[Rfam]
RNA sequence: GCCAAACGCAUGAUUGAGUGAAGCGCUGAUGAUGAUCAGAUCACCGGCCAAAUGCGCAUCAACAUGGACCGGUUACCGUUGUUCAUCAACGCUGCACUCAAUGAUGCAUUUG
Numbered sequence: 001g002c003c004a005a006a007c008g009c010a011u012g013a014u015u016g017a018g019u020g021a022a023g024c025g026c027u028g029a030u031g032a033u034g035a036u037c038a039g040a041u042c043a044c045c046g047g048c049c050a051a052a053u054g055c056g057c058a059u060c061a062a063c064a065u066g067g068a069c070c071g072g073u074u075a076c077c078g079u080u081g082u083u084c085a086u087c088a089a090c091g092c093u094g095c096a097c098u099c100a101a102u103g104a105u106g107c108a109u110u111u112g
Base pairs, nucleotide, nucleotide: 006109008107009106010105011104013102014101015100016099017098018097019096020095022093023092024091025090027088028087030085031084032083
Overview: The family of this 112-nucleotide RNA sequence from Oryza sativa is "MIR397 microRNA precursor family". The base pairs follow the family's consensus structure, which was predicted with WAR. Lineage of the source: Eukaryota > Streptophyta > Mesangiospermae > Poaceae > Oryza sativa. For this family Rfam cites "High throughput approaches reveal splicing of primary microRNA transcripts and tissue specific expression of mature microRNAs in Vitis vinifera" (Mica et al., BMC Genomics, 2009). The match comes from Rfam's covariance-model search (57 bits).